[Rfam]
A member of the RNA family "Bacteroidete tryptophan peptide leader RNA" from Flavobacterium psychrophilum, 129 nucleotides long. It is annotated as a cis-regulatory leader.
RNA sequence: UUUGAACUUUAAUUAAGAACAUGAACACAUUUUUAAACAAUACUUGGUGGUGGAAUAAUUUACGUCAAACGUCGUGAACUAAUCCUCUAUAUUGUAUUUUUAAAACUCAAAAUAUAAAAAAGGCUUGUC
Numbered sequence: 001u002u003u004g005a006a007c008u009u010u011a012a013u014u015a016a017g018a019a020c021a022u023g024a025a026c027a028c029a030u031u032u033u034u035a036a037a038c039a040a041u042a043c044u045u046g047g048u049g050g051u052g053g054a055a056u057a058a059u060u061u062a063c064g065u066c067a068a069a070c071g072u073c074g075u076g077a078a079c080u081a082a083u084c085c086u087c088u089a090u091a092u093u094g095u096a097u098u099u100u101u102a103a104a105a106c107u108c109a110a111a112a113u114a115u116a117a118a119a120a121a122g123g124c125u126u127g128u129c
Stems, first nucleotide, its partner, number of pairs: 036101002040097004047090001049088002052085001055083002058080001060078001062072003